[Rfam]
RNA: Twister_sister_ribozyme
RNA sequence: AGUAGAAGCCAGGUCCAGUCCCGAGCAUGCCGGGACCAGUACACUCUCACAAGGAGUGUACUGCGACGCUUAUAAUCUACUCU
Dot-bracket structure: ...(((......((([.(.(((......]..))).)(((((((((((.....))))))))))).)))........))).....
Numbered sequence: 001a002g003u004a005g006a007a008g009c010c011a012g013g014u015c016c017a018g019u020c021c022c023g024a025g026c027a028u029g030c031c032g033g034g035a036c037c038a039g040u041a042c043a044c045u046c047u048c049a050c051a052a053g054g055a056g057u058g059u060a061c062u063g064c065g066a067c068g069c070u071u072a073u074a075a076u077c078u079a080c081u082c083u
Stems, first nucleotide, its partner, number of pairs: 004078003013067003016029001018036001020034003037063011